[Rfam]
RNA sequence: GCCCUGUGGUUGCUGGACACUGGUUUGUGUGUACAGUGCUUCAGUUGGUAGCAACGGGCCGACAGUGAUGCUGUGAUUUACGCAUGGAGCCUGUGAUGCCUGAGCAGCUUCCAUAGCCCAGUCACAGUGACAGAC
Numbered sequence: 001g002c003c004c005u006g007u008g009g010u011u012g013c014u015g016g017a018c019a020c021u022g023g024u025u026u027g028u029g030u031g032u033a034c035a036g037u038g039c040u041u042c043a044g045u046u047g048g049u050a051g052c053a054a055c056g057g058g059c060c061g062a063c064a065g066u067g068a069u070g071c072u073g074u075g076a077u078u079u080a081c082g083c084a085u086g087g088a089g090c091c092u093g094u095g096a097u098g099c100c101u102g103a104g105c106a107g108c109u110u111c112c113a114u115a116g117c118c119c120a121g122u123c124a125c126a127g128u129g130a131c132a133g134a135c
Stems, first nucleotide, its partner, number of pairs: 001059004007050002010047001012045006019037004071127001073125006082117002084114004089109001091107004
Dot-bracket structure: ((((..((.(.((((((.((((...........))))..)))))).).)).....))))...........(.((((((...((((((.(.((((.........)))).).)))).))..)))))).)........
Small nucleolar RNA SNORA84: a 135-nucleotide sequence from Merops nubicus. Rfam classes the family as an H/ACA-box small nucleolar RNA. Gene Ontology terms of the family: nucleolus and RNA processing.